[Rfam]
RNA sequence: CUCUGUGAGGCAGCCAGAGGUGGUGCUGCAAGUGACUGUUGUAUGUCCACCGCAGCACUGCCUCUGGCUGCCUCACAGAGU
Number, nucleotide and partner (000 for none) at each position: 001c000002u000003c078004u077005g076006u075007g074008a000009g072010g071011c070012a069013g068014c067015c066016a065017g064018a063019g062020g061021u060022g000023g058024u057025g056026c055027u054028g053029c052030a000031a000032g000033u000034g000035a000036c000037u000038g000039u000040u000041g000042u000043a000044u000045g000046u000047c000048c000049a000050c000051c000052g029053c028054a027055g026056c025057a024058c023059u000060g021061c020062c019063u018064c017065u016066g015067g014068c013069u012070g011071c010072c009073u000074c007075a006076c005077a004078g003079a000080g000081u000
Source information:
mir-1421 microRNA precursor family: an 81-nucleotide RNA from Aquarana catesbeiana. NCBI's taxonomy places the organism under Eukaryota, Metazoa, Amphibia, Anura, Aquarana. Its family is annotated with miRNA-mediated post-transcriptional gene silencing and RISC complex in the Gene Ontology.